Small nucleolar RNA U109: a 160-nucleotide RNA from Chrysochloris asiatica.

RNA sequence: AGGCAUUGGCAAAGACCUCUAUGUGUUCCUCAUUCCUUUAGGAGCAGGAAUACAUCCAUAACAUGCUACGUUAAAAAAAAAAAAAAAAGAAAAAAAAGGAGUUCUCAGGGCUAUCAAACUUACAGUAGAGGUUGAGUAGUAGUAUAUUUCUCCUACAUUA
Dot-bracket structure: ..((((...............(.((((((...........)))))).)..............))))...............................((((........((..((((.(((......))).))).)..)).........)))).......

The family's consensus secondary structure was predicted with WAR. The family's RNA type in Rfam is H/ACA-box small nucleolar RNA. The source organism's lineage runs through Eukaryota, Gnathostomata, Dipnotetrapodomorpha, Eutheria and Chrysochloris.